[Rfam]
RNA sequence: AUGAGUGCCUGUUCCCACUAUUUUCCCCGCAGCUGCGCCCGUCGUCAUCACGUUCGUCACACGCUUGACACCUAUGCAAGCCACCGCGACGUGAGAGCCGAAAGGCUUAUCAGGCGCAACGCGACGACUCAAGUCGAGCCGCUUGCCCCGUUCACCGGGGCGGCGGCUUUUUUA
Numbered sequence: 001a002u003g004a005g006u007g008c009c010u011g012u013u014c015c016c017a018c019u020a021u022u023u024u025c026c027c028c029g030c031a032g033c034u035g036c037g038c039c040c041g042u043c044g045u046c047a048u049c050a051c052g053u054u055c056g057u058c059a060c061a062c063g064c065u066u067g068a069c070a071c072c073u074a075u076g077c078a079a080g081c082c083a084c085c086g087c088g089a090c091g092u093g094a095g096a097g098c099c100g101a102a103a104g105g106c107u108u109a110u111c112a113g114g115c116g117c118a119a120c121g122c123g124a125c126g127a128c129u130c131a132a133g134u135c136g137a138g139c140c141g142c143u144u145g146c147c148c149c150g151u152u153c154a155c156c157g158g159g160g161c162g163g164c165g166g167c168u169u170u171u172u173u174a
Stems, first nucleotide, its partner, number of pairs: 007038002009035001011033003014029001040123002043121003055116004125136004137168006144162006
Rfam assigns this 174-nucleotide sequence from Paraburkholderia humisilvae to the family "Burkholderia sRNA 2".
The family's consensus secondary structure was predicted with RNAfold.
It is annotated as a small RNA.
The literature on the family includes a 2017 paper in Microbiology by Ghosh et al., "Identification of novel small RNAs in Burkholderia cenocepacia KC-01 expressed under iron limitation and oxidative stress conditions".
From the family's description: Upregulated in response to iron ion depletion.
Lineage of the source: Bacteria > Betaproteobacteria > Burkholderiales > Burkholderiaceae > Paraburkholderia.